[Rfam]
RNA: Ribosomal protein L20 leader
Organism: Marinithermofilum abyssi
RNA sequence: GUAGCAAAGCAGAAGCGCCCCGCUUCUCACCUGAUCGACGCACGGGCAGUCGGCAGGUUGCGAUUCUGGAUGACGGGAUCUACAGGUGUGGGCGUGUGCCCGCACCUUUUUUAUUAG
Numbered sequence: 001g002u003a004g005c006a007a008a009g010c011a012g013a014a015g016c017g018c019c020c021c022g023c024u025u026c027u028c029a030c031c032u033g034a035u036c037g038a039c040g041c042a043c044g045g046g047c048a049g050u051c052g053g054c055a056g057g058u059u060g061c062g063a064u065u066c067u068g069g070a071u072g073a074c075g076g077g078a079u080c081u082a083c084a085g086g087u088g089u090g091g092g093c094g095u096g097u098g099c100c101c102g103c104a105c106c107u108u109u110u111u112u113a114u115u116a117g
Base pairs, nucleotide, nucleotide: 011027012026013025014024015023016022029058030057031056037051038050039049040047041046087104088103089102090101091100092099093098